A member of the RNA family "c-di-GMP-I riboswitch aptamer" from Paenalicyclobacillus ferrooxydans, 85 nucleotides long. A search with the family's covariance model found it, with a score of 65 bits. The source organism's lineage runs through Bacteria, Bacillota, Bacilli, Alicyclobacillaceae and Paenalicyclobacillus. From the family's description: GEMM was predicted in a large-scale screen for bacterial structured RNA regulatory elements. Genes associated with GEMM are involved in a diverse array of functions, including chemotaxis regulation, signal transduction, secretion and chitin.
[Rfam]
RNA sequence: UUUUAACAAUAGCAAACCUAGGCGAAAGUCCAGGGACGCAAAGCCACGGGGCUACUGCAUGCGCAAUGCCAGCCGGGCUGCCGGA
Numbered sequence: 001u002u003u004u005a006a007c008a009a010u011a012g013c014a015a016a017c018c019u020a021g022g023c024g025a026a027a028g029u030c031c032a033g034g035g036a037c038g039c040a041a042a043g044c045c046a047c048g049g050g051g052c053u054a055c056u057g058c059a060u061g062c063g064c065a066a067u068g069c070c071a072g073c074c075g076g077g078c079u080g081c082c083g084g085a
Stems, first nucleotide, its partner, number of pairs: 012039002017034003021030003042079004047075003050070003057064002